RNA sequence: UACUGCUCAGGGCAAACCUGCCGAAAGGCGGGGACGCAAAGCCACCGGUCUAAGGUUCGCGAUGUCGGGCUACGAUAGCGGGGUUGCCAGG
Numbered sequence: 001u002a003c004u005g006c007u008c009a010g011g012g013c014a015a016a017c018c019u020g021c022c023g024a025a026a027g028g029c030g031g032g033g034a035c036g037c038a039a040a041g042c043c044a045c046c047g048g049u050c051u052a053a054g055g056u057u058c059g060c061g062a063u064g065u066c067g068g069g070c071u072a073c074g075a076u077a078g079c080g081g082g083g084u085u086g087c088c089a090g091g
Stems, first nucleotide, its partner, number of pairs: 012037002017032006040085004045081003048076003055070004
This 91-nucleotide RNA sequence from Steroidobacter denitrificans belongs to the Rfam family "c-di-GMP-I riboswitch aptamer". NCBI's taxonomy places the organism under Bacteria, Pseudomonadati, Pseudomonadota, Steroidobacterales, Steroidobacter.